Rfam assigns this 52-nucleotide RNA from Solanum commersonii to the family "MIR1886 microRNA precursor family". Rfam links the family to the GO terms RISC complex and miRNA-mediated post-transcriptional gene silencing. A search with the family's covariance model found it, with a score of 69 bits. NCBI's taxonomy places the organism under Eukaryota, Streptophyta, Embryophyta, Solanoideae, Solanum. Pairs were carried over by alignment from the consensus structure, which was predicted with RNAalifold.
RNA sequence: UGAGAUGAAAUCAACAUUUGGACAAGUGAUUUCUUGUUGAUUUCAUCUCAUG
Dot-bracket structure: ((((((((((((((((.(((......))).....))))))))))))))))..